[Rfam]
RNA: DUF3800-IX RNA
RNA sequence: CCCCAUCCCGCGAAAGGUGAUCAUCUGUGGUUGCCUGUUCCCAUCCAUGUUGAUGGAAUCGGACUAGCGGGGUGGGUUGCC
Numbered sequence: 001c002c003c004c005a006u007c008c009c010g011c012g013a014a015a016g017g018u019g020a021u022c023a024u025c026u027g028u029g030g031u032u033g034c035c036u037g038u039u040c041c042c043a044u045c046c047a048u049g050u051u052g053a054u055g056g057a058a059u060c061g062g063a064c065u066a067g068c069g070g071g072g073u074g075g076g077u078u079g080c081c
Base pairs, nucleotide, nucleotide: 001076002075004074005073006072008070009069010068011067016035017034018033019032020031021030022029037064038063039062040061